Rfam assigns this 102-nucleotide sequence from Bacillus sp. cl95 to the family "Purine riboswitch aptamer". Rfam's curators write: Riboswitches are metabolite binding domains within certain messenger RNAs that serve as precision sensors for their corresponding targets. Pairs were carried over by alignment from the consensus structure, which is taken from published work.
RNA sequence: ACGAAUUAAUCGAAUAAUCUUCGUAUAAUGUUGGGGAUAUGGCCCAAAAGUUUCUACCGAGCUACCGUAAACAGCUUGACUACGAGGUGCAUGUUUGAAUAG
Numbered sequence: 001a002c003g004a005a006u007u008a009a010u011c012g013a014a015u016a017a018u019c020u021u022c023g024u025a026u027a028a029u030g031u032u033g034g035g036g037a038u039a040u041g042g043c044c045c046a047a048a049a050g051u052u053u054c055u056a057c058c059g060a061g062c063u064a065c066c067g068u069a070a071a072c073a074g075c076u077u078g079a080c081u082a083c084g085a086g087g088u089g090c091a092u093g094u095u096u097g098a099a100u101a102g
Base pairs, nucleotide, nucleotide: 019087020086021085022084023083024082025081029049031047032046033045034044035043058078059077060076061075062074063073